[Rfam]
RNA sequence: AAGUGUUGCAGCUCUUUUAGAAUUUGUCUAGCAGGCUUUCUGACUAUUGCUUGAAACCCCAC
Dot-bracket structure: .................................((.((((.(.(....).).)))).))...
RNA: U7 small nuclear RNA